[Rfam]
The family of this 70-nucleotide RNA sequence from Pseudomonas extremaustralis is "narK RNA". By type it is a cis-regulatory element. The family's consensus secondary structure is taken from published work.

RNA sequence: GGCUCAGCUCUUGCUAAAGAAUCACUACAGGUAACCAACGGCGGUUGCCCCUCCACGACAAAGACGUCGC
Number, nucleotide and partner (000 for none) at each position: 001g000002g000003c000004u000005c000006a000007g000008c000009u000010c000011u000012u000013g000014c000015u000016a000017a000018a000019g000020a000021a000022u000023c000024a000025c000026u000027a000028c000029a000030g049031g048032u047033a046034a045035c044036c043037a000038a000039c000040g000041g000042c000043g036044g035045u034046u033047g032048c031049c030050c000051c000052u000053c000054c000055a000056c000057g000058a000059c000060a000061a000062a000063g000064a000065c000066g000067u000068c000069g000070c000